A member of the RNA family "U12 minor spliceosomal RNA" from Crocuta crocuta, 151 nucleotides long. A search with the family's covariance model found it, with a score of 88 bits. By type it is a spliceosomal small nuclear RNA.
RNA sequence: AUGCCUUAAACCUCAUGAGUAAGGAAAAGAACAAUUCAGGGUGAUACUGGAAUCCUCACAGCUAAUGUAAGAUGAAUUUUUGGACAAGUAAAGGUUGCCCCGAACGUGACCUACCUACUUUGUGAGAUGCUUGAGAAUCACGAUCUGUCCA
Numbered sequence: 001a002u003g004c005c006u007u008a009a010a011c012c013u014c015a016u017g018a019g020u021a022a023g024g025a026a027a028a029g030a031a032c033a034a035u036u037c038a039g040g041g042u043g044a045u046a047c048u049g050g051a052a053u054c055c056u057c058a059c060a061g062c063u064a065a066u067g068u069a070a071g072a073u074g075a076a077u078u079u080u081u082g083g084a085c086a087a088g089u090a091a092a093g094g095u096u097g098c099c100c101c102g103a104a105c106g107u108g109a110c111c112u113a114c115c116u117a118c119u120u121u122g123u124g125a126g127a128u129g130c131u132u133g134a135g136a137a138u139c140a141c142g143a144u145c146u147g148u149c150c151a
Stems, first nucleotide, its partner, number of pairs: 004024005034053004039048002055071002058068002088148002092146006101135001104132001106130003110126001112124003